[Rfam]
RNA sequence: GCUUGAUUUACGCUUAAUUUCCAACGGCCGCGUUGGGAAGCGGGGGAACCAGUCAUUUGGGGCGAAUCACCGGUCUAUCGAUGAAGAUGGCCGGUCGUAGGGUACCAUCUACCCGAGUCCGUCAGCUAACCUCGUCAGCAGGAGAUGGGUCAG
Numbered sequence: 001g002c003u004u005g006a007u008u009u010a011c012g013c014u015u016a017a018u019u020u021c022c023a024a025c026g027g028c029c030g031c032g033u034u035g036g037g038a039a040g041c042g043g044g045g046g047a048a049c050c051a052g053u054c055a056u057u058u059g060g061g062g063c064g065a066a067u068c069a070c071c072g073g074u075c076u077a078u079c080g081a082u083g084a085a086g087a088u089g090g091c092c093g094g095u096c097g098u099a100g101g102g103u104a105c106c107a108u109c110u111a112c113c114c115g116a117g118u119c120c121g122u123c124a125g126c127u128a129a130c131c132u133c134g135u136c137a138g139c140a141g142g143a144g145a146u147g148g149g150u151c152a153g
Base pairs, nucleotide, nucleotide: 012139013138014137018039019038020037021036022035023034024033025032026031040135041134042133043132044131045130050059051058060120061119062118068097071094100114101113102112103111
Rfam assigns this 153-nucleotide sequence from Cohnella sp. AR92 to the family "c-di-AMP riboswitch aptamer (ydaO/yuaA leader)".